About this RNA: This 317-nucleotide sequence from Daphnia magna belongs to the Rfam family "Nuclear RNase P". The source organism's lineage runs through Eukaryota, Panarthropoda, Phyllopoda, Cladocera and Daphnia. By type it is a ribozyme. The family is grouped with related families in Rfam's "RNaseP clan". About the family: Ribonuclease P (RNase P) is a ubiquitous endoribonuclease, found in archaea, bacteria and eukarya as well as chloroplasts and mitochondria. Its best characterised activity is the generation of mature 5'-ends of tRNAs by cleaving the 5'-leader elements of precursor-tRNAs. Cellular RNase Ps are ribonucleoproteins. RNA from bacterial RNase Ps retains its catalytic activity in the absence of the protein subunit, i.e. it is a ribozyme. Isolated eukaryotic and archaeal RNase P RNA has not been shown to retain its catalytic function, but is still essential for the catalytic activity of the holoenzyme. Although the archaeal and eukaryotic holoenzyme s have a much greater protein content than the bacterial ones, the RNA cores from all the three lineages are homologous -- helices corresponding to P1, P2, P3, P4, and P10/11 are common to all cellular RNase P RNAs. Yet, there is considerable sequence variation, particularly among the eukaryotic RNAs.

[Rfam]
RNA sequence: GUCCGACAAUCCCGCAUUUGGGGGUUACAUUCGAGGCACUUGUUGCUUGUUUUAGGUACUCCCGGGAAGGUCUGAGACAAAGCUUUGCUCUUGUUGUGGAGCAAUACGUUCUAGCCGGGCGGCCUUUUCAUGAAGGUGCAGGGGAAUAGAAAGAAUAUCGACUGUGAUGUCACUAGGCCCAUGAUAUCCGGGACAACGGAUUAGGCGUAGACGUUGACGUACGAUUGGAAUUGCUUCUGUGGCUUGCUUUUCGAGUAUAAUGUGCGGGUUGCUUUUGUUUGACUGCAAAACUCAAUUCAGACUAAUCUGUCGAGGGC
Numbered sequence: 001g002u003c004c005g006a007c008a009a010u011c012c013c014g015c016a017u018u019u020g021g022g023g024g025u026u027a028c029a030u031u032c033g034a035g036g037c038a039c040u041u042g043u044u045g046c047u048u049g050u051u052u053u054a055g056g057u058a059c060u061c062c063c064g065g066g067a068a069g070g071u072c073u074g075a076g077a078c079a080a081a082g083c084u085u086u087g088c089u090c091u092u093g094u095u096g097u098g099g100a101g102c103a104a105u106a107c108g109u110u111c112u113a114g115c116c117g118g119g120c121g122g123c124c125u126u127u128u129c130a131u132g133a134a135g136g137u138g139c140a141g142g143g144g145a146a147u148a149g150a151a152a153g154a155a156u157a158u159c160g161a162c163u164g165u166g167a168u169g170u171c172a173c174u175a176g177g178c179c180c181a182u183g184a185u186a187u188c189c190g191g192g193a194c195a196a197c198g199g200a201u202u203a204g205g206c207g208u209a210g211a212c213g214u215u216g217a218c219g220u221a222c223g224a225u226u227g228g229a230a231u232u233g234c235u236u237c238u239g240u241g242g243c244u245u246g247c248u249u250u251u252c253g254a255g256u257a258u259a260a261u262g263u264g265c266g267g268g269u270u271g272c273u274u275u276u277g278u279u280u281g282a283c284u285g286c287a288a289a290a291c292u293c294a295a296u297u298c299a300g301a302c303u304a305a306u307c308u309g310u311c312g313a314g315g316g317c
Base pairs, nucleotide, nucleotide: 001317002316003315004314006310007309008308011268012267013266014265015264016263017262020063021062022061023060024059034048035047036046037045038044072300073299074298075297076296081244082243083242084241107121108120109119110118111117122137123136124135125134126133127132138240139239140238141237142236143235144234158224159223160222269288270287271286272285275282